A member of the RNA family "Small nucleolar RNA snR60/Z15/Z230/Z193/J17" from Panicum miliaceum, 97 nucleotides long.
RNA sequence: UGAGGUUGGAUGAUGAUCAGUUGCAUAGUUCAAAUGAUUACAUCUGUAAUGACUAUGAUUACACUGAAUUCUCUUUCGCUCCUAACUGACAACCUUU
Numbered sequence: 001u002g003a004g005g006u007u008g009g010a011u012g013a014u015g016a017u018c019a020g021u022u023g024c025a026u027a028g029u030u031c032a033a034a035u036g037a038u039u040a041c042a043u044c045u046g047u048a049a050u051g052a053c054u055a056u057g058a059u060u061a062c063a064c065u066g067a068a069u070u071c072u073c074u075u076u077c078g079c080u081c082c083u084a085a086c087u088g089a090c091a092a093c094c095u096u097u
Base pairs, nucleotide, nucleotide: 004094005093006092007091008090
Dot-bracket structure: ...(((((.................................................................................)))))...

Pairs were carried over by alignment from the consensus structure. The source organism's lineage runs through Eukaryota, Streptophyta, Euphyllophyta, Liliopsida and Panicum sect. Panicum. Rfam links the family to the GO terms RNA processing and nucleolus. The literature on the family includes a 1999 paper in Science by Lowe and Eddy, "A computational screen for methylation guide snoRNAs in yeast".